The record is a 102-nucleotide sequence from Aegilops tauschii, which matches "Small nucleolar RNA R16" in Rfam.
By type it is a C/D-box small nucleolar RNA.
RNA sequence: GCUGGCAAGUGUUGAUCAGAUAUCAUUGAUCAGAUAUCCUACACUCUCAAUGGAAAAUUCCGUGUGUGGACUAAUAAUCUCUGCUUAUUAUCUGAUGCCUGA
Numbered sequence: 001g002c003u004g005g006c007a008a009g010u011g012u013u014g015a016u017c018a019g020a021u022a023u024c025a026u027u028g029a030u031c032a033g034a035u036a037u038c039c040u041a042c043a044c045u046c047u048c049a050a051u052g053g054a055a056a057a058u059u060c061c062g063u064g065u066g067u068g069g070a071c072u073a074a075u076a077a078u079c080u081c082u083g084c085u086u087a088u089u090a091u092c093u094g095a096u097g098c099c100u101g102a
Base pairs, nucleotide, nucleotide: 004099005098006097007096
Pairs were carried over by alignment from the consensus structure, which was predicted with PFOLD.